[Rfam]
RNA sequence: CUGCAUGAUGAACUCCAAGUUAGUGCCAUCGUGUCUGGGCCACUGAUGCUGUGUGAUGGAACUGAGUAUCUGAGCAG
Numbered sequence: 001c002u003g004c005a006u007g008a009u010g011a012a013c014u015c016c017a018a019g020u021u022a023g024u025g026c027c028a029u030c031g032u033g034u035c036u037g038g039g040c041c042a043c044u045g046a047u048g049c050u051g052u053g054u055g056a057u058g059g060a061a062c063u064g065a066g067u068a069u070c071u072g073a074g075c076a077g
Stems, first nucleotide, its partner, number of pairs: 001077004
Small nucleolar RNA SNORD66: a 77-nucleotide sequence from Podarcis muralis.
Gene Ontology terms of the family: RNA processing and nucleolus.
It is annotated as a C/D-box small nucleolar RNA.
NCBI's taxonomy places the organism under Eukaryota, Metazoa, Episquamata, Lacertidae, Podarcis.
On this family, see Huttenhofer et al., EMBO J 2001: "RNomics: an experimental approach that identifies 201 candidates for novel, small, non-messenger RNAs in mouse".
snoRNA HBII-142 is part of the C/D family of snoRNAs. It is the human orthologue of the mouse MBII-142 snoRNA and is predicted to guide 2'O-ribose methylation of small 18S rRNA at residue C1272.